[Rfam]
RNA: c-di-GMP-I-GGC riboswitch aptamer
Organism: Pseudodesulfovibrio senegalensis
Nucleotides: 075
Base pairs, nucleotide, nucleotide: 004071011036012035016031017030018029019028020027021026034061039068040067041066042065044064045063046062047059048058049057
Number, partner (000 for none) and nucleotide at each position: 001000a002000u003000c004071g005000a006000a007000a008000a009000a010000g011036c012035c013000a014000a015000a016031c017030c018029u019028g020027c021026c022000g023000c024000g025000a026021g027020g028019c029018a030017g031016g032000g033000a034061c035012g036011g037000a038000a039068a040067g041066c042065c043000a044064c045063g046062g047059g048058u049057c050000u051000c052000u053000c054000u055000g056000a057049g058048a059047c060000a061034g062046c063045c064044g065042g066041g067040u068039u069000g070000c071004c072000a073000a074000u075000g